[Rfam]
RNA sequence: CCAGUUGACCGGGCGGCCGCUGCGCUUUUUUAAAGCGUGGAGGAAAGUCCGGGCUCCAUGAGAACACGGUGCCGGGUAACGCCCGGCGGGGGCGACCCCAGGGAAAGUGCCACAGAAAGCAAACCGCCCCGGUUCGCCGGGGUAAGGGUGAAAGGGUGCGGUAAGAGCGCACCGGGCUGCCGGUAACGGACGCCGCACGGUAAACCCCACCGGGAGCAAAACCGAAUAGGGACGAUGGGAGUUUCGGCUCCAGCCGAGUUCUCUCGGCCGGUCGUCCGGGUUGGUUGCAGGAGGGUCCUGGUAACAGGGCUCCCAGAUGAAUGGUCGCCAAGAGGGUUUUCCCUCGAACAGAACCCGGCUUACAGGUCAACUGGUGAU
Number, nucleotide and partner (000 for none) at each position: 001c374002c373003a372004g371005u370006u369007g368008a367009c366010c365011g363012g329013g328014c327015g326016g325017c324018c323019g000020c040021u039022g038023c037024g036025c035026u034027u033028u032029u000030u000031u000032a028033a027034a026035g025036c024037g023038u022039g021040g020041a000042g000043g000044a000045a361046a360047g359048u000049c358050c357051g356052g355053g354054c216055u215056c214057c213058a000059u000060g000061a000062g262063a000064a260065c000066a000067c212068g211069g210070u209071g208072c086073c085074g084075g083076g082077u000078a000079a000080c000081g000082c076083c075084c074085g073086g072087c101088g099089g098090g097091g096092g000093c000094g000095a000096c091097c090098c089099c088100a000101g087102g207103g206104a000105a000106a000107g205108u204109g201110c200111c199112a000113c000114a000115g000116a000117a000118a000119g000120c000121a000122a000123a000124c147125c146126g143127c142128c141129c140130c139131g138132g137133u000134u000135c000136g000137c132138c131139g130140g129141g128142g127143u126144a000145a000146g125147g124148g000149u000150g000151a000152a000153a000154g000155g173156g172157u171158g170159c169160g168161g000162u000163a000164a000165g000166a000167g000168c160169g159170c158171a157172c156173c155174g196175g194176g193177c192178u000179g000180c189181c188182g187183g000184u000185a000186a000187c182188g181189g180190a000191c000192g177193c176194c175195g000196c174197a000198c000199g111200g110201u109202a000203a000204a108205c107206c103207c102208c071209a070210c069211c068212g067213g057214g056215a055216g054217c000218a000219a000220a286221a285222c284223c283224g000225a000226a000227u000228a000229g000230g277231g276232a275233c274234g273235a272236u000237g000238g000239g000240a000241g000242u000243u000244u000245c000246g000247g000248c000249u000250c000251c000252a000253g268254c267255c266256g265257a264258g000259u000260u064261c000262u062263c000264u257265c256266g255267g254268c253269c000270g000271g000272u235273c234274g233275u232276c231277c230278g000279g000280g000281u000282u000283g223284g222285u221286u220287g000288c000289a000290g000291g000292a000293g312294g311295g310296u309297c308298c307299u306300g305301g000302u000303a000304a000305c300306a299307g298308g297309g296310c295311u294312c293313c000314c000315a000316g000317a000318u000319g000320a000321a000322u000323g018324g017325u016326c015327g014328c013329c012330a000331a000332g000333a000334g000335g000336g000337u000338u000339u000340u000341c000342c000343c000344u000345c000346g000347a000348a000349c000350a000351g000352a000353a000354c053355c052356c051357g050358g049359c047360u046361u045362a000363c011364a000365g010366g009367u008368c007369a006370a005371c004372u003373g002374g001375u000376g000377a000378u000
Overview
A member of the RNA family "Bacterial RNase P class A" from Pelagibacterium luteolum, 378 nucleotides long. Rfam classes the family as a ribozyme. Taxonomically the source falls in Pelagibacterium (Bacteria, Pseudomonadati, Alphaproteobacteria, Hyphomicrobiales). Pairs were carried over by alignment from the consensus structure, which is taken from published work.